The record is a 106-nucleotide RNA sequence from Pusillibacter faecalis, which matches "THF (Tetrahydrofolate) riboswitch aptamer" in Rfam. NCBI's taxonomy places the organism under Bacteria, Bacillota, Clostridia, Oscillospiraceae, Pusillibacter. From the family's description: Tetrahydrofolate (THF) riboswitch was first reported for Ames et al. as an RNA motif in 5' untranslated (5'-UTR)regions of folate transport and biosynthesis genes in Firmicutes genomes. Rfam 15.1 lists 747 matches to the family in 747 species.

RNA sequence: GGCAGAGUAAGAGCACAUGUGUGAAAUAGUGCCGGAAAGACGGGGAGUUGUUUUCUGGACGAAAAGACUGAAAAAGUCUGCAGUAUGUGUUCUGAAUCCCGCUGCC
Numbered sequence: 001g002g003c004a005g006a007g008u009a010a011g012a013g014c015a016c017a018u019g020u021g022u023g024a025a026a027u028a029g030u031g032c033c034g035g036a037a038a039g040a041c042g043g044g045g046a047g048u049u050g051u052u053u054u055c056u057g058g059a060c061g062a063a064a065a066g067a068c069u070g071a072a073a074a075a076g077u078c079u080g081c082a083g084u085a086u087g088u089g090u091u092c093u094g095a096a097u098c099c100c101g102c103u104g105c106c
Stems, first nucleotide, its partner, number of pairs: 001106005010093010020082003029060002032058008043099003065079004